The record is a 90-nucleotide RNA from Carnegiea gigantea, which matches "Small nucleolar RNA snoR27" in Rfam.
Rfam links the family to the GO terms nucleolus and RNA processing.
Clan: snR68 clan.
The family has 6 seed sequences and 649 matches in Rfam 15.1.
It is annotated as a C/D-box small nucleolar RNA.
Pairs were carried over by alignment from the consensus structure, which was predicted with WAR.
The source organism's lineage runs through Eukaryota, Embryophyta, Euphyllophyta, Cactineae and Carnegiea.
A reference for the family is Brown et al. (2001), "Multiple snoRNA gene clusters from Arabidopsis", RNA.
[Rfam]
RNA sequence: AUUGGAUCAUUGAUUUCAUGUUGAUGCUGCAUUAUAUCUGCCAUUUUCUUACUUGGAAUUGAUGGGAAUCAUGUGUUGUUGAGAGCCAAU
Numbered sequence: 001a002u003u004g005g006a007u008c009a010u011u012g013a014u015u016u017c018a019u020g021u022u023g024a025u026g027c028u029g030c031a032u033u034a035u036a037u038c039u040g041c042c043a044u045u046u047u048c049u050u051a052c053u054u055g056g057a058a059u060u061g062a063u064g065g066g067a068a069u070c071a072u073g074u075g076u077u078g079u080u081g082a083g084a085g086c087c088a089a090u
Stems, first nucleotide, its partner, number of pairs: 001090005007084001